[Rfam]
RNA sequence: AAUAGUAGAAUGACAAAUCAGACUUUUCCUCUUGAUUUUUAGCAUUUUUAGUUGAAUUUGAUUUAUUUUUUAAUGAGAAAAAAGCUGAAAAUCAAGAGAAAAAAUCUGAUUUAUCAUUCUCUUAUU
Numbered sequence: 001a002a003u004a005g006u007a008g009a010a011u012g013a014c015a016a017a018u019c020a021g022a023c024u025u026u027u028c029c030u031c032u033u034g035a036u037u038u039u040u041a042g043c044a045u046u047u048u049u050a051g052u053u054g055a056a057u058u059u060g061a062u063u064u065a066u067u068u069u070u071u072a073a074u075g076a077g078a079a080a081a082a083a084g085c086u087g088a089a090a091a092u093c094a095a096g097a098g099a100a101a102a103a104a105u106c107u108g109a110u111u112u113a114u115c116a117u118u119c120u121c122u123u124a125u126u
Stems, first nucleotide, its partner, number of pairs: 001126005007120007015112008024103004029098011041086002045082004
Dot-bracket structure: (((((.(((((((.((((((((.((((.(((((((((((.((..((((..............................))))..)).))))))))))).)))).)))))))).))))))).)))))
A member of the RNA family "MIR7504 microRNA precursor family" from Gossypium anomalum, 126 nucleotides long. The organism belongs to Gossypium, within Eukaryota.